[Rfam]
RNA sequence: CAACCGAAAGGGCAAACUUGAGGAAACUCAAGGACGCAAAACUAAAGGGGCUAAAGCACGAAUGGCUAGGCCAGCCAGUUGCCGAA
Numbered sequence: 001c002a003a004c005c006g007a008a009a010g011g012g013c014a015a016a017c018u019u020g021a022g023g024a025a026a027c028u029c030a031a032g033g034a035c036g037c038a039a040a041a042c043u044a045a046a047g048g049g050g051c052u053a054a055a056g057c058a059c060g061a062a063u064g065g066c067u068a069g070g071c072c073a074g075c076c077a078g079u080u081g082c083c084g085a086a
Stems, first nucleotide, its partner, number of pairs: 012037002017032006040080004047076002049072003056066002
RNA: c-di-GMP-I riboswitch aptamer